[Rfam]
RNA sequence: AUAUUUUAAUAAAAACUUGCUCGUAUAUCCUCAGAAAUAUGGUCUGAGAGUCUCUACCCGGCAACCUUAAAUUGCUGGACUACGAGUGAAAGUGAAUCUAAG
Numbered sequence: 001a002u003a004u005u006u007u008a009a010u011a012a013a014a015a016c017u018u019g020c021u022c023g024u025a026u027a028u029c030c031u032c033a034g035a036a037a038u039a040u041g042g043u044c045u046g047a048g049a050g051u052c053u054c055u056a057c058c059c060g061g062c063a064a065c066c067u068u069a070a071a072u073u074g075c076u077g078g079a080c081u082a083c084g085a086g087u088g089a090a091a092g093u094g095a096a097u098c099u100a101a102g
Stems, first nucleotide, its partner, number of pairs: 018088008030048006058078007
Rfam assigns this 102-nucleotide sequence from Anoxybacteroides amylolyticum to the family "Purine riboswitch aptamer". Lineage of the source: Bacteria > Bacillati > Bacilli > Caryophanales > Anoxybacteroides. About the family: Riboswitches are metabolite binding domains within certain messenger RNAs that serve as precision sensors for their corresponding targets.